Shown here is a 132-nucleotide sequence from Vibrio tapetis, a member of the family "Gammaprotebacteria rimP leader". It is annotated as a cis-regulatory leader. Its family is annotated with regulation of gene expression in the Gene Ontology. The match comes from Rfam's covariance-model search (72 bits). A reference for the family is Naville and Gautheret (2010), "Premature terminator analysis sheds light on a hidden world of bacterial transcriptional attenuation", Genome Biol.

Nucleotides: 132
Base pairs, nucleotide, nucleotide: 032056033055034054035053036052037051038050039049040048113125114124115123116122
Number, partner (000 for none) and nucleotide at each position: 001000c002000g003000u004000c005000a006000c007000u008000u009000a010000g011000c012000a013000a014000u015000a016000u017000c018000a019000g020000g021000g022000u023000c024000c025000a026000g027000c028000a029000g030000c031000a032056a033055a034054a035053a036052c037051c038050c039049c040048g041000a042000c043000u044000a045000a046000u047000u048040c049039g050038g051037g052036g053035u054034u055033u056032u057000u058000u059000g060000u061000u062000a063000u064000c065000u066000g067000u068000a069000u070000u071000u072000u073000a074000g075000a076000u077000u078000u079000u080000u081000u082000a083000a084000a085000g086000u087000a088000c089000a090000g091000g092000g093000u094000g095000c096000g097000c098000u099000u100000g101000g102000u103000a104000a105000a106000a107000u108000c109000g110000a111000u112000a113125g114124g115123g116122c117000u118000a119000u120000g121000u122116g123115c124114c125113c126000u127000u128000u129000u130000u131000u132000u